[Rfam]
RNA: Small nucleolar RNA SNORA23
Organism: Larimichthys crocea
RNA sequence: GGUGGUCGGUGUGCACGGUGUUAGUCUGUGUUACGUGCUGUUGUCGGCCUGCGUUUUGCAGACUCGGCAGCAGCGCUCACUCCACACCUGCAGCCAUAGAACGACAGGAGAUCAUAGUACUGGCCUUUGACGUCUUCAUUGACCUCUCACCAUCGGCCAGCCUCCAAACUCUCCAACACGC
Dot-bracket structure: ............(((..............((...(((((((.(((((..(((.....)))..).)))).)))))).).))........)))...............(((((........((((((...((.(((......))).))........)))))).........))))).......